[Rfam]
RNA sequence: AAAACACACCGAGUUUGCCGUCCGGUAAACAUCGCUUAUUGACGUGUGCGCUUUUCGCGCACUAAUGCAACAGUUUCCAAAGUGCAUACUUUGUUCAACUGUUGCAUUUUAAG
Numbered sequence: 001a002a003a004a005c006a007c008a009c010c011g012a013g014u015u016u017g018c019c020g021u022c023c024g025g026u027a028a029a030c031a032u033c034g035c036u037u038a039u040u041g042a043c044g045u046g047u048g049c050g051c052u053u054u055u056c057g058c059g060c061a062c063u064a065a066u067g068c069a070a071c072a073g074u075u076u077c078c079a080a081a082g083u084g085c086a087u088a089c090u091u092u093g094u095u096c097a098a099c100u101g102u103u104g105c106a107u108u109u110u111a112a113g
Base pairs, nucleotide, nucleotide: 011033012032013030014029015028016027017026018025019024046062047061048060049059050058051057065107066106067105068104069103070102071101072100073099074098075097078093079092080091081090082089083088
TD-1 RNA: a 113-nucleotide RNA sequence from Treponema vincentii. The literature on the family includes a 2007 paper in Nucleic Acids Res by Weinberg et al., "Identification of 22 candidate structured RNAs in bacteria using the CMfinder comparative genomics pipeline". The family's consensus secondary structure is taken from published work. The family's RNA type in Rfam is cis-regulatory element.